Rfam assigns this 133-nucleotide sequence to the family "Small nucleolar RNA SNORA75". Its family is annotated with RNA processing and nucleolus in the Gene Ontology. Rfam classes the family as an H/ACA-box small nucleolar RNA. From the family's description: U23 belongs to the H/ACA class of snoRNAs. snoRNAs bind a number of proteins (including dyskerin, Gar1p and Nop10p in the case of the H/ACA class) to form snoRNP complexes. On this family, see Ganot et al., Genes Dev 1997: "The family of box ACA small nucleolar RNAs is defined by an evolutionarily conserved secondary structure and ubiquitous sequence elements essential for RNA accumulation".
RNA sequence: AUCUUCUCAUUGAGCUCCUUUCUGUCCAUCAGUGAUAGAUUAUGGAUUCGCACGAGAAGAAGAGAGAAUUCACAGAACUGGCACUUAUCUUCUGUUUUUGCAGAAGUAUAUUUGGCUGUUGUGUGAGACAUUA
Numbered sequence: 001a002u003c004u005u006c007u008c009a010u011u012g013a014g015c016u017c018c019u020u021u022c023u024g025u026c027c028a029u030c031a032g033u034g035a036u037a038g039a040u041u042a043u044g045g046a047u048u049c050g051c052a053c054g055a056g057a058a059g060a061a062g063a064g065a066g067a068a069u070u071c072a073c074a075g076a077a078c079u080g081g082c083a084c085u086u087a088u089c090u091u092c093u094g095u096u097u098u099u100g101c102a103g104a105a106g107u108a109u110a111u112u113u114g115g116c117u118g119u120u121g122u123g124u125g126a127g128a129c130a131u132u133a
Stems, first nucleotide, its partner, number of pairs: 003059006014051002016046003022038005070126005089106006